[Rfam]
RNA: mir-234 microRNA precursor family
Organism: Pristionchus pacificus
RNA sequence: ACGCUGGGCAUUCUUUAGUGAAUAACACGUUUGAUACGAAGAACUGUUAUUGCUCAAGAAUGCCAAUCGU
Numbered sequence: 001a002c003g004c005u006g007g008g009c010a011u012u013c014u015u016u017a018g019u020g021a022a023u024a025a026c027a028c029g030u031u032u033g034a035u036a037c038g039a040a041g042a043a044c045u046g047u048u049a050u051u052g053c054u055c056a057a058g059a060a061u062g063c064c065a066a067u068c069g070u
Stems, first nucleotide, its partner, number of pairs: 008063006017054003021051007